[Rfam]
RNA sequence: GUAAGAAGUCUUUUUCGUUCUCCGCAUUAUAGCGUGAAAACUGAAAAGAUUUGUUACAG
Numbered sequence: 001g002u003a004a005g006a007a008g009u010c011u012u013u014u015u016c017g018u019u020c021u022c023c024g025c026a027u028u029a030u031a032g033c034g035u036g037a038a039a040a041c042u043g044a045a046a047a048g049a050u051u052u053g054u055u056a057c058a059g
Stems, first nucleotide, its partner, number of pairs: 001057004006052008015043001017041003021037002023034003

This 59-nucleotide RNA from Caenorhabditis auriculariae belongs to the Rfam family "mir-255 microRNA precursor family". Rfam links the family to the GO terms miRNA-mediated post-transcriptional gene silencing and RISC complex. The family has 5 seed sequences and 31 matches in Rfam 15.1. Taxonomically the source falls in Caenorhabditis (Eukaryota, Eumetazoa, Chromadorea, Rhabditina). The family's consensus secondary structure was predicted with RNAalifold.